[Rfam]
RNA: Nuclear RNase P
RNA sequence: UCCGGGGGAAGCUCACCGCCGAGGCCACGCACGGGGUGUGCGUCACCCACGCCCCGCCUCGGGGAAGGUCUGAGGGAAGGGCCGCCCGCGGCUCCAGCAGAGCCCCGCCCGCGAGGGGGGCGGGUGAGCCACCAGCAAGGGGGGGCGCCGCGAUAUCUCUUCAAUGGGCCGGUCUCACGGGCAGGAGAAGCCGACGCAGGUUCCGCGGAGGGAACCCCGGCGGAUGCUCGUGGCCCCGCGGUGCUUUGAGACAGACUCACGGCCGGCGCUUGAGUCCAAUGGGUGAGGUGGGGCACCGCCCUACAACCCAAUUCAGACUACUCUCCCCCGGA
Number, nucleotide and partner (000 for none) at each position: 001u332002c331003c330004g329005g000006g000007g326008g325009a324010a000011g000012c287013u286014c285015a284016c283017c282018g000019c000020c061021g060022a059023g058024g057025c000026c000027a000028c000029g000030c000031a000032c000033g000034g048035g047036g046037u045038g044039u000040g000041c000042g000043u000044c038045a037046c036047c035048c034049a000050c000051g000052c000053c000054c000055c000056g000057c024058c023059u022060c021061g020062g000063g000064g000065a000066a000067g000068g000069u000070c316071u315072g314073a313074g312075g000076g000077a000078a000079g000080g264081g263082c262083c261084g000085c000086c000087c000088g000089c000090g104091g103092c102093u101094c100095c000096a000097g000098c000099a000100g094101a093102g092103c091104c090105c123106c122107g121108c120109c119110c118111g000112c000113g000114a000115g000116g000117g000118g110119g109120g108121c107122g106123g105124g260125u259126g258127a257128g256129c000130c254131a000132c000133c000134a000135g000136c000137a000138a000139g000140g000141g000142g000143g000144g245145g244146c243147g242148c241149c240150g239151c238152g237153a000154u000155a000156u000157c000158u000159c000160u000161u000162c000163a000164a000165u000166g000167g000168g000169c000170c000171g000172g000173u000174c000175u000176c000177a000178c000179g000180g000181g000182c000183a000184g000185g000186a000187g000188a000189a000190g000191c000192c000193g000194a000195c000196g000197c000198a000199g000200g000201u000202u000203c000204c000205g000206c000207g000208g000209a000210g000211g000212g000213a000214a000215c000216c000217c000218c000219g000220g000221c000222g000223g000224a000225u000226g000227c000228u000229c000230g000231u000232g000233g000234c000235c000236c000237c152238g151239c150240g149241g148242u147243g146244c145245u144246u000247u000248g000249a000250g000251a000252c000253a000254g130255a000256c128257u127258c126259a125260c124261g083262g082263c081264c080265g000266g000267c000268g000269c000270u000271u000272g000273a000274g000275u000276c000277c000278a000279a000280u000281g000282g017283g016284u015285g014286a013287g012288g304289u303290g302291g301292g300293g299294c298295a000296c000297c000298g294299c293300c292301c291302u290303a289304c288305a000306a000307c000308c000309c000310a000311a000312u074313u073314c072315a071316g070317a000318c000319u000320a000321c000322u000323c000324u009325c008326c007327c000328c000329c004330g003331g002332a001